[Rfam]
RNA sequence: GGUAUUGUUUCAAUUCCAUGAUAAGCCCCGGAAACUUAUUAUGAUGAAAAUAAAUA
Numbered sequence: 001g002g003u004a005u006u007g008u009u010u011c012a013a014u015u016c017c018a019u020g021a022u023a024a025g026c027c028c029c030g031g032a033a034a035c036u037u038a039u040u041a042u043g044a045u046g047a048a049a050a051u052a053a054a055u056a
Stems, first nucleotide, its partner, number of pairs: 006052005017043009
The record is a 56-nucleotide RNA sequence from Lederbergia galactosidilytica, which matches "Ribosomal protein L13 leader" in Rfam. For this family Rfam cites "Diverse mechanisms for regulating ribosomal protein synthesis in Escherichia coli" (Zengel and Lindahl, Prog Nucleic Acid Res Mol Biol, 1994). The family's consensus secondary structure was predicted with CMfinder. Its family is annotated with regulation of gene expression in the Gene Ontology. It is annotated as a cis-regulatory leader. The organism belongs to Lederbergia, within Bacteria. Rfam describes the family as follows. This family is a putative r-protein leader autoregulatory structure found in B. subtilis and other low-GC Gram-positive bacteria. It is located in the 5' untranslated regions of mRNAs encoding the L13-S9 (rplM-rpsI) ribosomal protein operon.